[Rfam]
Nucleotides: 027
Base pairs, nucleotide, nucleotide: 001027002026003025004024008022010019011018012017
Number, partner (000 for none) and nucleotide at each position: 001027u002026a003025a004024c005000c006000u007000c008022u009000g010019g011018a012017a013000c014000u015000g016000u017012u018011u019010u020000g021000a022008a023000u024004g025003u026002u027001g
Description:
L19-Flavobacteria ribosomal protein leader: a 27-nucleotide RNA. By type it is a cis-regulatory leader. Rfam's curators put it in the seed alignment. On this family, see Eckert and Weinberg, BMC Microbiol 2020: "Discovery of 20 novel ribosomal leader candidates in bacteria and archaea".